[Rfam]
RNA sequence: GUGUUCCUCACUGGAGAGUGGCGCUGUCGUCGAGCGCUCACCGAAGGGGCAAGUCUGGUCGCUGACCAGAUCAAUCUCUCAGGUACCCGGGACAGCGAGGGGUUG
Numbered sequence: 001g002u003g004u005u006c007c008u009c010a011c012u013g014g015a016g017a018g019u020g021g022c023g024c025u026g027u028c029g030u031c032g033a034g035c036g037c038u039c040a041c042c043g044a045a046g047g048g049g050c051a052a053g054u055c056u057g058g059u060c061g062c063u064g065a066c067c068a069g070a071u072c073a074a075u076c077u078c079u080c081a082g083g084u085a086c087c088c089g090g091g092a093c094a095g096c097g098a099g100g101g102g103u104u105g
Stems, first nucleotide, its partner, number of pairs: 006100004011095003020038004040084003043080002047078003053071008
Shown here is a 105-nucleotide RNA from Thiomonas bhubaneswarensis, a member of the family "Glycine riboswitch aptamer". It scores 59 bits against the family's covariance model. The organism belongs to Thiomonas, within Bacteria.